[Rfam]
RNA: PyrR binding site
RNA sequence: AACACUUUUUAAUUGCAGUCCAGAGAGGCUAGCGAAGAGUGCAUCCGUUUUUCAAAGAAAGCUCAGCUUACUUUUCUUUGGGGGAUUUAUAAACUCUUCGCAAAUUAUUGCGAAGAGUUUUUUUGU
Numbered sequence: 001a002a003c004a005c006u007u008u009u010u011a012a013u014u015g016c017a018g019u020c021c022a023g024a025g026a027g028g029c030u031a032g033c034g035a036a037g038a039g040u041g042c043a044u045c046c047g048u049u050u051u052u053c054a055a056a057g058a059a060a061g062c063u064c065a066g067c068u069u070a071c072u073u074u075u076c077u078u079u080g081g082g083g084g085a086u087u088u089a090u091a092a093a094c095u096c097u098u099c100g101c102a103a104a105u106u107a108u109u110g111c112g113a114a115g116a117g118u119u120u121u122u123u124u125g126u
Base pairs, nucleotide, nucleotide: 003041004040005039006038007037008036009035017030018029019028020027048085049084050083051082052081053080054079055078056077057076058075059074060073061072091120092119093118094117095116096115097114098113099112100111101110102109103108